Shown here is an 85-nucleotide RNA from Lachnospiraceae bacterium OF09-33XD, a member of the family "ZMP/ZTP riboswitch aptamer (pfl RNA motif)". Rfam links the family to the GO terms regulation of purine nucleotide biosynthetic process and one-carbon metabolic process. The source organism's lineage runs through Bacteria, Bacillota, Clostridia, Lachnospirales and Lachnospiraceae. The family's consensus secondary structure is taken from published work.
[Rfam]
RNA sequence: AGGGUGUUCUGUGUACUGACGGAUAUGUGGAUGAGAACCACAGGGAAUCAGAACCCGCGUUUAGCCGACCGUCUGGGCAGCAUUU
Numbered sequence: 001a002g003g004g005u006g007u008u009c010u011g012u013g014u015a016c017u018g019a020c021g022g023a024u025a026u027g028u029g030g031a032u033g034a035g036a037a038c039c040a041c042a043g044g045g046a047a048u049c050a051g052a053a054c055c056c057g058c059g060u061u062u063a064g065c066c067g068a069c070c071g072u073c074u075g076g077g078c079a080g081c082a083u084u085u
Stems, first nucleotide, its partner, number of pairs: 004056001006054006016045002018073005027041004062080001064078003